[Rfam]
RNA sequence: UCACGGGAUAGGCUGGCCAGCCGACAAGCGAAACGCCUUUCUUCGCUUCCCGUGAAUUUUAUUCUGAAAGG
Numbered sequence: 001u002c003a004c005g006g007g008a009u010a011g012g013c014u015g016g017c018c019a020g021c022c023g024a025c026a027a028g029c030g031a032a033a034c035g036c037c038u039u040u041c042u043u044c045g046c047u048u049c050c051c052g053u054g055a056a057u058u059u060u061a062u063u064c065u066g067a068a069a070g071g
Base pairs, nucleotide, nucleotide: 001055002054003053004052005051006050007049008048011022012021013020014019028046029045030044031043032042036071037070038069039068040067041066